A member of the RNA family "Bacillus sRNA ncr1575" from Psychrobacillus sp. FJAT-21963, 253 nucleotides long. Rfam classes the family as a small RNA. A reference for the family is Irnov et al. (2010), "Identification of regulatory RNAs in Bacillus subtilis", Nucleic Acids Res. A search with the family's covariance model found it, with a score of 85 bits. The source organism's lineage runs through Bacteria, Bacilli, Caryophanales, Bacillaceae and Psychrobacillus.
[Rfam]
RNA sequence: ACAUCAAAUUUUGAAGGGACGAUGGGUGGCCGAUGAAGUUUUAAUCUUAUUUCUCAGUAGAAGUUUUUCUGCGAUAUAUUUGCGCAGUAACAAAAUAAAACUUUACGAAACCGGAAAUAGGAUUAGUCUGCCCAUUUUUCAAAAUUACUGCAAAUAAUUCUCUACAAUACGCUAACGCUUUGUAGUGGUUUUUUGCAUAUUCAUUUAAUGGUCAGUAUGUAAUCCUACCGUUUAAUAUCGGAGGGAUUUUUUU
Numbered sequence: 001a002c003a004u005c006a007a008a009u010u011u012u013g014a015a016g017g018g019a020c021g022a023u024g025g026g027u028g029g030c031c032g033a034u035g036a037a038g039u040u041u042u043a044a045u046c047u048u049a050u051u052u053c054u055c056a057g058u059a060g061a062a063g064u065u066u067u068u069c070u071g072c073g074a075u076a077u078a079u080u081u082g083c084g085c086a087g088u089a090a091c092a093a094a095a096u097a098a099a100a101c102u103u104u105a106c107g108a109a110a111c112c113g114g115a116a117a118u119a120g121g122a123u124u125a126g127u128c129u130g131c132c133c134a135u136u137u138u139u140c141a142a143a144a145u146u147a148c149u150g151c152a153a154a155u156a157a158u159u160c161u162c163u164a165c166a167a168u169a170c171g172c173u174a175a176c177g178c179u180u181u182g183u184a185g186u187g188g189u190u191u192u193u194u195g196c197a198u199a200u201u202c203a204u205u206u207a208a209u210g211g212u213c214a215g216u217a218u219g220u221a222a223u224c225c226u227a228c229c230g231u232u233u234a235a236u237a238u239c240g241g242a243g244g245g246a247u248u249u250u251u252u253u
Stems, first nucleotide, its partner, number of pairs: 016140004023134004029128001031126001042125013058108001060104008150196005156190004221248006228241003
Dot-bracket structure: ...............((((...((((..(.(..........(((((((((((((...(.((((((((.............................))))))))...)....)))))))))))))).)..))))..)))).........(((((.((((...........................)))).)))))........................((((((.(((........))).)))))).....